RNA sequence: UGAAAGAAAUACAAAAACACAGUUCUGGUUGGUAGUCCAGACGCAUGAUUUCAUGUCAGUAACCUUCCCCUCCGGGAUGUCCCGUAUUUCUAAUUUUUUU
Numbered sequence: 001u002g003a004a005a006g007a008a009a010u011a012c013a014a015a016a017a018c019a020c021a022g023u024u025c026u027g028g029u030u031g032g033u034a035g036u037c038c039a040g041a042c043g044c045a046u047g048a049u050u051u052c053a054u055g056u057c058a059g060u061a062a063c064c065u066u067c068c069c070c071u072c073c074g075g076g077a078u079g080u081c082c083c084g085u086a087u088u089u090c091u092a093a094u095u096u097u098u099u100u
Stems, first nucleotide, its partner, number of pairs: 005091007022042002025040004043056005066077004
RNA: azaaromatic riboswitch aptamer (yjdF RNA)
Organism: Bacillus thuringiensis